[Rfam]
RNA sequence: AGUCGUCAAAGCGACUAUAAACAGGCAUUAGGCUUUGAGCGUUGCUACAAUUAACUUUGUAGCAGGUUGCA
Numbered sequence: 001a002g003u004c005g006u007c008a009a010a011g012c013g014a015c016u017a018u019a020a021a022c023a024g025g026c027a028u029u030a031g032g033c034u035u036u037g038a039g040c041g042u043u044g045c046u047a048c049a050a051u052u053a054a055c056u057u058u059g060u061a062g063c064a065g066g067u068u069g070c071a
Stems, first nucleotide, its partner, number of pairs: 001016004006038006025070003032040001042065008